The record is a 74-nucleotide RNA sequence from Canis lupus, which matches "U1A polyadenylation inhibition element (PIE)" in Rfam. From the family's description: This family represents the U1A polyadenylation inhibition element (PIE). PIE is a regulatory RNA which is responsible for the regulation of the length of the polyA tail of the U1A pre-mRNA. The PIE is located in the U1A mRNA 3' UTR. PIE adopts a U-shaped structure, with binding sites for a single U1A protein at each bend and when complexed with the two proteins it blocks activity of poly(A) polymerase (PAP), and inhibits its activity.
[Rfam]
RNA sequence: CCACACAGCAUUGUACCCAGAGUCUGUCCCCAGACAUUGCACCGGGUGCUGUUAGGCCAGAAUUAAAGUGUUUU
Numbered sequence: 001c002c003a004c005a006c007a008g009c010a011u012u013g014u015a016c017c018c019a020g021a022g023u024c025u026g027u028c029c030c031c032a033g034a035c036a037u038u039g040c041a042c043c044g045g046g047u048g049c050u051g052u053u054a055g056g057c058c059a060g061a062a063u064u065a066a067a068g069u070g071u072u073u074u
Stems, first nucleotide, its partner, number of pairs: 005052005017046002020043001022035005

Rfam links the family to the GO term regulation of mRNA polyadenylation.